Annotation:
A member of the RNA family "MIR390 microRNA precursor family" from Anisodus acutangulus, 181 nucleotides long. The base pairs follow the family's consensus structure, which was predicted with WAR. NCBI's taxonomy places the organism under Eukaryota, Viridiplantae, Solanaceae, Solanoideae, Anisodus.
[Rfam]
Nucleotides: 181
Stems, first nucleotide, its partner, number of pairs: 010172001016166006023159002026156010
Number, partner (000 for none) and nucleotide at each position: 001000u002000g003000g004000g005000g006000g007000g008000a009000u010172c011000u012000g013000u014000a015000a016166a017165g018164c019163u020162c021161a022000g023159g024158a025000g026156g027155g028154a029153u030152a031151g032150c033149g034148c035147c036000a037000u038000g039000g040000a041000a042000a043000a044000u045000g046000a047000u048000g049000u050000g051000a052000u053000g054000u055000u056000g057000g058000u059000u060000u061000u062000u063000c064000u065000u066000u067000u068000u069000g070000c071000u072000u073000c074000u075000u076000u077000u078000c079000u080000g081000a082000a083000a084000u085000u086000g087000u088000c089000u090000u091000u092000c093000c094000c095000a096000a097000a098000a099000a100000u101000u102000c103000a104000u105000c106000u107000u108000u109000a110000a111000a112000u113000u114000u115000u116000u117000u118000g119000g120000u121000a122000c123000a124000a125000u126000a127000a128000a129000u130000u131000u132000a133000u134000c135000a136000a137000a138000a139000u140000c141000a142000u143000a144000u145000u146000u147035g148034g149033c150032g151031c152030u153029a154028u155027c156026c157000a158024u159023c160000g161021u162020g163019a164018g165017u166016u167000c168000u169000a170000u171000g172010g173000c174000u175000c176000c177000u178000u179000c180000u181000u